This 72-nucleotide sequence from Eptesicus fuscus belongs to the Rfam family "mir-574 microRNA precursor family". The organism belongs to Eptesicus, within Eukaryota. Gene Ontology terms of the family: miRNA-mediated post-transcriptional gene silencing and RISC complex. The family has 6 seed sequences and 4,084 matches in Rfam 15.1. Rfam's curators put it in the seed alignment. The base pairs follow the family's consensus structure, which was predicted with RNAalifold.

[Rfam]
RNA sequence: GGGCCUGGAGAGAGAGGCAGGGUCUGAUCCGCAGCCUCUGUUGAUCAGCUGUUGCCUCUCUCUUUCUCUCCA
Numbered sequence: 001g002g003g004c005c006u007g008g009a010g011a012g013a014g015a016g017g018c019a020g021g022g023u024c025u026g027a028u029c030c031g032c033a034g035c036c037u038c039u040g041u042u043g044a045u046c047a048g049c050u051g052u053u054g055c056c057u058c059u060c061u062c063u064u065u066c067u068c069u070c071c072a
Stems, first nucleotide, its partner, number of pairs: 008064013022050001024048006032040003